[Rfam]
RNA: mir-124 microRNA precursor family
RNA sequence: UUCUCCUGGUUUUCACUGUAGGCCUGUAUGUUCCCAAAAAUAUAUAAGUUCAUAAGGCACGCGGUGAAUGCCAAGAGCG
Numbered sequence: 001u002u003c004u005c006c007u008g009g010u011u012u013u014c015a016c017u018g019u020a021g022g023c024c025u026g027u028a029u030g031u032u033c034c035c036a037a038a039a040a041u042a043u044a045u046a047a048g049u050u051c052a053u054a055a056g057g058c059a060c061g062c063g064g065u066g067a068a069u070g071c072c073a074a075g076a077g078c079g
Stems, first nucleotide, its partner, number of pairs: 003077003009071002012068005018062002023057003027054004